A member of the RNA family "MIR9563 microRNA precursor family" from Brassica oleracea, 124 nucleotides long. The base pairs follow the family's consensus structure, which was predicted with RNAalifold. The source organism's lineage runs through Eukaryota, Pentapetalae, rosids, Brassica and Brassica oleracea.
RNA sequence: UUAAUAUAAGAAACCGUCUCUUAACUUUUAACUAAAAAAGUUAAGAACCGGUUCUUAAAUAGAUAUUUAAAAACCGGUUCUUAGCUUUCUUAUUUAAAAGUUAAGAGAUGAUUUUUUAUAUUCC
Numbered sequence: 001u002u003a004a005u006a007u008a009a010g011a012a013a014c015c016g017u018c019u020c021u022u023a024a025c026u027u028u029u030a031a032c033u034a035a036a037a038a039a040g041u042u043a044a045g046a047a048c049c050g051g052u053u054c055u056u057a058a059a060u061a062g063a064u065a066u067u068u069a070a071a072a073a074c075c076g077g078u079u080c081u082u083a084g085c086u087u088u089c090u091u092a093u094u095u096a097a098a099a100g101u102u103a104a105g106a107g108a109u110g111a112u113u114u115u116u117u118a119u120a121u122u123c124c
Base pairs, nucleotide, nucleotide: 003122004121005120006119007118008117009116010115011114012113013112015110016109017108018107019106020105021104022103023102024101025100026099027098028097029096030095031094033092034091035090037088038087039086041084042083043082044081045080046079047078
Gene Ontology terms of the family: miRNA-mediated post-transcriptional gene silencing and RISC complex.